[Rfam]
RNA sequence: UCUUCAUUUCCCGUGCUCUCUCACCGGUCAGAGAGACGAGAGGACACGCGUAAUGAAGAGA
Numbered sequence: 001u002c003u004u005c006a007u008u009u010c011c012c013g014u015g016c017u018c019u020c021u022c023a024c025c026g027g028u029c030a031g032a033g034a035g036a037c038g039a040g041a042g043g044a045c046a047c048g049c050g051u052a053a054u055g056a057a058g059a060g061a
Base pairs, nucleotide, nucleotide: 001059002058003057004056005055006054007053010050012048013047014046015045017043019041020040021039022038
RNA: mir-8364 microRNA precursor family